Rfam assigns this 71-nucleotide RNA sequence from Notodromas monacha to the family "mir-10 microRNA precursor family".
The family's consensus secondary structure was predicted with PFOLD.
[Rfam]
RNA sequence: CAGAGAGUACCCGUAGAUCCGAACUUGUGCGAUCUUGUGUUCACAAGUUUGGUUUUAGGGGUUCACGCUGU
Numbered sequence: 001c002a003g004a005g006a007g008u009a010c011c012c013g014u015a016g017a018u019c020c021g022a023a024c025u026u027g028u029g030c031g032a033u034c035u036u037g038u039g040u041u042c043a044c045a046a047g048u049u050u051g052g053u054u055u056u057a058g059g060g061g062u063u064c065a066c067g068c069u070g071u
Stems, first nucleotide, its partner, number of pairs: 002069002005066001007064001010061003015056003019052011
The literature on the family includes a 2001 paper in Science by Lee and Ambros, "An extensive class of small RNAs in Caenorhabditis elegans". Rfam links the family to the GO terms RISC complex and miRNA-mediated post-transcriptional gene silencing.